[Rfam]
RNA sequence: GGAGACUGUGCUCCGCGCACUAACACGAUGAAGUGUUGCUCGGAGC
Number, nucleotide and partner (000 for none) at each position: 001g000002g000003a000004g000005a000006c000007u000008g000009u000010g000011c045012u044013c043014c042015g041016c000017g039018c038019a037020c000021u000022a000023a000024c000025a000026c000027g000028a000029u000030g000031a000032a000033g000034u000035g000036u000037u019038g018039c017040u000041c015042g014043g013044a012045g011046c000